mir-460 microRNA precursor family: a 77-nucleotide sequence from Poecilia formosa.

RNA sequence: UUUUACAGUCCCUGCAUUGUACACACUGUGCGUAUAGAUCACAAAAGCACAGCGCAUACAAUGUGGAUGCUGUCCUA
Number, nucleotide and partner (000 for none) at each position: 001u000002u000003u000004u000005a000006c000007a000008g000009u000010c000011c000012c066013u065014g000015c063016a062017u061018u060019g059020u058021a057022c000023a000024c054025a000026c052027u051028g050029u049030g048031c047032g000033u000034a000035u000036a000037g000038a000039u000040c000041a000042c000043a000044a000045a000046a000047g031048c030049a029050c028051a027052g026053c000054g024055c000056a000057u021058a020059c019060a018061a017062u016063g015064u000065g013066g012067a000068u000069g000070c000071u000072g000073u000074c000075c000076u000077a000
NCBI's taxonomy places the organism under Eukaryota, Deuterostomia, Gnathostomata, Poeciliinae, Poecilia. For this family Rfam cites "Identification of microRNAs from different tissues of chicken embryo and adult chicken" (Xu et al., FEBS Lett, 2006).